[Rfam]
RNA: mir-15 microRNA precursor family
RNA sequence: UCUUGCUUUAGCAGCAUGUAAAUAUUGGAGUUACUCCUUGGCAAAUGCCUCCAAUAUUGCUCAUGCUGCUGAAGCAAGA
Numbered sequence: 001u002c003u004u005g006c007u008u009u010a011g012c013a014g015c016a017u018g019u020a021a022a023u024a025u026u027g028g029a030g031u032u033a034c035u036c037c038u039u040g041g042c043a044a045a046u047g048c049c050u051c052c053a054a055u056a057u058u059g060c061u062c063a064u065g066c067u068g069c070u071g072a073a074g075c076a077a078g079a
Stems, first nucleotide, its partner, number of pairs: 001079001008072011021058010